[Rfam]
RNA sequence: AUGGCUUGAGAUAAAAACACGAUUCGGUUGGUAGUCCGGAUGAGGAGAAAUCCUUCAGUAACCUGCCCUCCUGGGGUUGUCCAUUCUUAAUAUGAGCUUU
Numbered sequence: 001a002u003g004g005c006u007u008g009a010g011a012u013a014a015a016a017a018c019a020c021g022a023u024u025c026g027g028u029u030g031g032u033a034g035u036c037c038g039g040a041u042g043a044g045g046a047g048a049a050a051u052c053c054u055u056c057a058g059u060a061a062c063c064u065g066c067c068c069u070c071c072u073g074g075g076g077u078u079g080u081c082c083a084u085u086c087u088u089a090a091u092a093u094g095a096g097c098u099u100u
Stems, first nucleotide, its partner, number of pairs: 006090006022041006042055005065077004

A member of the RNA family "azaaromatic riboswitch aptamer (yjdF RNA)" from Clostridium oryzae, 100 nucleotides long. It scores 79 bits against the family's covariance model.